[Rfam]
RNA sequence: CUGUAUUCUACAGUGCAUGUGUCUCCAGUAUUUCUAAGUAACUGGAGAGACAGCCCUGUUGGAAUAAC
Numbered sequence: 001c002u003g004u005a006u007u008c009u010a011c012a013g014u015g016c017a018u019g020u021g022u023c024u025c026c027a028g029u030a031u032u033u034c035u036a037a038g039u040a041a042c043u044g045g046a047g048a049g050a051c052a053g054c055c056c057u058g059u060u061g062g063a064a065u066a067a068c
Stems, first nucleotide, its partner, number of pairs: 006064004010059004015054002018052003022048008
Dot-bracket structure: .....((((((((.((.(((.((((((((...........)))))))).))))).)))).))))....
RNA: mir-139 microRNA precursor family